[Rfam]
RNA sequence: CCCCGAUAAAAUGUCGGGGUACUUAUUUAGCUGAUGCAAUAAGGGGUCUGCUCGUG
Numbered sequence: 001c002c003c004c005g006a007u008a009a010a011a012u013g014u015c016g017g018g019g020u021a022c023u024u025a026u027u028u029a030g031c032u033g034a035u036g037c038a039a040u041a042a043g044g045g046g047u048c049u050g051c052u053c054g055u056g
Stems, first nucleotide, its partner, number of pairs: 001019008
RNA: ClpQY promoter
Organism: Buttiauxella agrestis